[Rfam]
Nucleotides: 153
Stems, first nucleotide, its partner, number of pairs: 002019006028069004033060012084097005098123004107114002128146001130144002133141001
Number, partner (000 for none) and nucleotide at each position: 001000c002019c003018u004017g005016c006015g007014g008000u009000u010000c011000c012000g013000u014007c015006c016005g017004c018003a019002g020000u021000a022000g023000c024000c025000u026000a027000g028069c029068g030067g031066c032000a033060c034059c035058u036057g037056c038055g039054g040053g041052g042051u043050u044049g045000g046000u047000a048000a049044c050043g051042a052041c053040c054039u055038c056037g057036u058035g059034g060033g061000a062000a063000g064000c065000a066031g067030c068029c069028g070000c071000g072000a073000c074000a075000a076000u077000g078000c079000a080000c081000c082000u083000g084097c085096a086095u087094c088093c089000u090000u091000c092000g093088g094087g095086a096085u097084g098123g099122g100121a101120a102000a103000c104000u105000c106000g107114c108113c109000g110000c111000g112000a113108g114107g115000u116000u117000g118000a119000g120101u121100u122099c123098u124000c125000c126000g127000a128146g129000c130144c131143g132000c133141c134000a135000a136000u137000g138000u139000c140000a141133g142000a143131c144130g145000a146128c147000u148000c149000a150000a151000g152000u153000g
Description:
This 153-nucleotide RNA sequence from Termitidicoccus mucosus belongs to the Rfam family "Group II catalytic intron D1-D4-7". A search with the family's covariance model found it, with a score of 95 bits. Pairs were carried over by alignment from the consensus structure. The literature on the family includes a 2001 paper in EMBO J by Chu et al., "Control of branch-site choice by a group II intron". About the family: Group II introns are found in rRNA, tRNA and mRNA of organelles in fungi, plants and protists, and also in mRNA in bacteria. The family has 244 seed sequences and 1,296 matches in Rfam 15.1.